[Rfam]
RNA sequence: UCGGUGGCCGCCGCUGAUUCGCUUGGUGCAGGUCGGGAUCGGGGCAGGAUCCUGCCUUGCAUCAACUGAAUCGGAGGAGGAGUGCGA
Number, nucleotide and partner (000 for none) at each position: 001u000002c000003g000004g000005u000006g000007g000008c000009c000010g000011c000012c000013g000014c074015u000016g000017a071018u070019u069020c068021g000022c000023u065024u064025g063026g062027u061028g060029c059030a058031g057032g056033u000034c054035g053036g052037g051038a050039u000040c048041g000042g000043g000044g000045c000046a000047g000048g040049a000050u038051c037052c036053u035054g034055c000056c032057u031058u030059g029060c028061a027062u026063c025064a024065a023066c000067u000068g020069a019070a018071u017072c000073g000074g014075a000076g000077g000078a000079g000080g000081a000082g000083u000084g000085c000086g000087a000
RNA: MIR168 microRNA precursor family